[Rfam]
RNA sequence: UCGUCAGUGAGGUAUAUCCUUACCUGUUACUUCAGUAAUGAAGUAUCAGAAAAUGAUGAAUGGAAUUUGAUGAGAAAUGAUUAUUCUCACCUGAUCUUCGGAGAACUACAACACUCCGCUGAUCCCGUUCUGAU
Numbered sequence: 001u002c003g004u005c006a007g008u009g010a011g012g013u014a015u016a017u018c019c020u021u022a023c024c025u026g027u028u029a030c031u032u033c034a035g036u037a038a039u040g041a042a043g044u045a046u047c048a049g050a051a052a053a054u055g056a057u058g059a060a061u062g063g064a065a066u067u068u069g070a071u072g073a074g075a076a077a078u079g080a081u082u083a084u085u086c087u088c089a090c091c092u093g094a095u096c097u098u099c100g101g102a103g104a105a106c107u108a109c110a111a112c113a114c115u116c117c118g119c120u121g122a123u124c125c126c127g128u129u130c131u132g133a134u
Stems, first nucleotide, its partner, number of pairs: 024049003028045006072090001075087001077085001078083001094123003099118004
RNA: U8 small nucleolar RNA